[Rfam]
RNA: Proteo-phage-1 RNA
RNA sequence: CCCUAGUCAUCAGGGCUGUGAUUACAGAUGGGAUGAAUGGCGUCAGACCAGCGGUGCGCCAACAUGAGAAAAACACUGGCAGAU
Numbered sequence: 001c002c003c004u005a006g007u008c009a010u011c012a013g014g015g016c017u018g019u020g021a022u023u024a025c026a027g028a029u030g031g032g033a034u035g036a037a038u039g040g041c042g043u044c045a046g047a048c049c050a051g052c053g054g055u056g057c058g059c060c061a062a063c064a065u066g067a068g069a070a071a072a073a074c075a076c077u078g079g080c081a082g083a084u
Stems, first nucleotide, its partner, number of pairs: 001015004007036005017026003038061005048079004
Dot-bracket structure: [[[[..(((((]]]].(((....))).....))))).(((((.....[[[[.....)))))..............]]]].....